Rfam assigns this 158-nucleotide sequence from Glycine max to the family "MIR4371 microRNA precursor family".
It scores 128 bits against the family's covariance model.
Rfam links the family to the GO terms RISC complex and miRNA-mediated post-transcriptional gene silencing.
Clan: MIR4387 microRNA precursor clan.
The base pairs follow the family's consensus structure, which was predicted with RNAalifold.

RNA sequence: CCGUUAAGUGAUGAUGUGACAGACAAAAUGUCAUGUCGUCAAACGUAAUCAUUGACACAUCAUUGUCACGUCACUGAAGGUGAUGAUGUGGCAAUGAGGUGUAAGUCAUAAGGUAUGAUGACAUGAUACUUUGUCUGUCACGUCAUCACUUAACGGAA
Numbered sequence: 001c002c003g004u005u006a007a008g009u010g011a012u013g014a015u016g017u018g019a020c021a022g023a024c025a026a027a028a029u030g031u032c033a034u035g036u037c038g039u040c041a042a043a044c045g046u047a048a049u050c051a052u053u054g055a056c057a058c059a060u061c062a063u064u065g066u067c068a069c070g071u072c073a074c075u076g077a078a079g080g081u082g083a084u085g086a087u088g089u090g091g092c093a094a095u096g097a098g099g100u101g102u103a104a105g106u107c108a109u110a111a112g113g114u115a116u117g118a119u120g121a122c123a124u125g126a127u128a129c130u131u132u133g134u135c136u137g138u139c140a141c142g143u144c145a146u147c148a149c150u151u152a153a154c155g156g157a158a
Base pairs, nucleotide, nucleotide: 001156002155003154004153005152006151007150008149009148010147011146012145013144014143015142016141017140018139019138020137021136022135023134024133025132026131027130029128030127031126032125033124034123035122036121037120038119039118040117041116043114044113046111048109049108051106052105055102056101057100058099070087071086072085073084